Background
Fluoride riboswitch aptamer (crcB RNA motif): a 64-nucleotide RNA sequence from Lentimicrobium saccharophilum. NCBI's taxonomy places the organism under Bacteria, Bacteroidota, Bacteroidia, Lentimicrobiaceae, Lentimicrobium. The match comes from Rfam's covariance-model search (46 bits). A reference for the family is Zhao et al. (2017), "An excited state underlies gene regulation of a transcriptional riboswitch", Nat Chem Biol.
RNA sequence: UUUGCCGCAGGCUAUGGGGUUAGCCUUUAACCGCCUUCAACAAGCUGAUAACUCCUGGAUGAUU
Numbered sequence: 001u002u003u004g005c006c007g008c009a010g011g012c013u014a015u016g017g018g019g020u021u022a023g024c025c026u027u028u029a030a031c032c033g034c035c036u037u038c039a040a041c042a043a044g045c046u047g048a049u050a051a052c053u054c055c056u057g058g059a060u061g062a063u064u
Stems, first nucleotide, its partner, number of pairs: 010025004016055006033045002036042001